Background: The family of this 101-nucleotide RNA sequence from Oceanobacillus oncorhynchi is "Purine riboswitch aptamer".

RNA sequence: GCCAACAAUUGAAAAAUGCCUCAUAUAUACUUGAGAAUAUGGCUCAAAAGUUUCUACCCGGCACCGUAAAUGACCGGACUAUGAGGGAGGAUGAGCCGUUG
Numbered sequence: 001g002c003c004a005a006c007a008a009u010u011g012a013a014a015a016a017u018g019c020c021u022c023a024u025a026u027a028u029a030c031u032u033g034a035g036a037a038u039a040u041g042g043c044u045c046a047a048a049a050g051u052u053u054c055u056a057c058c059c060g061g062c063a064c065c066g067u068a069a070a071u072g073a074c075c076g077g078a079c080u081a082u083g084a085g086g087g088a089g090g091a092u093g094a095g096c097c098g099u100u101g
Stems, first nucleotide, its partner, number of pairs: 019086007031047005058077004062072002
Dot-bracket structure: ..................(((((((.....(((((.......)))))..........((((((.......)).))))..)))))))...............
The match comes from Rfam's covariance-model search (75 bits). Taxonomically the source falls in Oceanobacillus (Bacteria, Bacilli, Caryophanales, Bacillaceae).